[Rfam]
RNA: c-di-GMP-I-UAU riboswitch aptamer
Organism: Arthrobacter oryzae
RNA sequence: ACCGACAAGAGCAAAACCGGCGUGAGCCGGUGACGCAAAGCCACGGGACCCGAACGGGUCAGCCGGGCUGCCGAAA
Numbered sequence: 001a002c003c004g005a006c007a008a009g010a011g012c013a014a015a016a017c018c019g020g021c022g023u024g025a026g027c028c029g030g031u032g033a034c035g036c037a038a039a040g041c042c043a044c045g046g047g048a049c050c051c052g053a054a055c056g057g058g059u060c061a062g063c064c065g066g067g068c069u070g071c072c073g074a075a076a
Stems, first nucleotide, its partner, number of pairs: 011036002016031006039069004044065003047060005